[Rfam]
RNA sequence: GCUGGGGUCCGUGGCGGGCUCUGUAAUCCAAGCUACUGGGAGGCUAGAAUUUGUGGAGGGUUUGAGGUUGGGAGUCCUGCUGUGCAAUGCUUCACGUUGAACCGGCGUCCGCACUAAGCUUGGCGUCAACAUGGGUAUCUUGGAGGAGUCCGAGGCAUCCAGGUUGUCUAACGAGAUAUGCAAUAGAUCUAGGGGAGAAAUCCAGCAGUCUAAAGUAUCCGCGGCAAGCAGUAGUGGGAUCUCGCUGGCGAGUGGGUGCUGUACAGUAGCCCAGUUAAUACAAGCAGACCAGGUUCCUU
Numbered sequence: 001g002c003u004g005g006g007g008u009c010c011g012u013g014g015c016g017g018g019c020u021c022u023g024u025a026a027u028c029c030a031a032g033c034u035a036c037u038g039g040g041a042g043g044c045u046a047g048a049a050u051u052u053g054u055g056g057a058g059g060g061u062u063u064g065a066g067g068u069u070g071g072g073a074g075u076c077c078u079g080c081u082g083u084g085c086a087a088u089g090c091u092u093c094a095c096g097u098u099g100a101a102c103c104g105g106c107g108u109c110c111g112c113a114c115u116a117a118g119c120u121u122g123g124c125g126u127c128a129a130c131a132u133g134g135g136u137a138u139c140u141u142g143g144a145g146g147a148g149u150c151c152g153a154g155g156c157a158u159c160c161a162g163g164u165u166g167u168c169u170a171a172c173g174a175g176a177u178a179u180g181c182a183a184u185a186g187a188u189c190u191a192g193g194g195g196a197g198a199a200a201u202c203c204a205g206c207a208g209u210c211u212a213a214a215g216u217a218u219c220c221g222c223g224g225c226a227a228g229c230a231g232u233a234g235u236g237g238g239a240u241c242u243c244g245c246u247g248g249c250g251a252g253u254g255g256g257u258g259c260u261g262u263a264c265a266g267u268a269g270c271c272c273a274g275u276u277a278a279u280a281c282a283a284g285c286a287g288a289c290c291a292g293g294u295u296c297c298u299u
Stems, first nucleotide, its partner, number of pairs: 001044003004022008027041003047296007059285001061283002066276007077269010088258002091256005097250001102248006109238002112236005118229005124223003127166004132161005138155007167173001175219005184212005194203003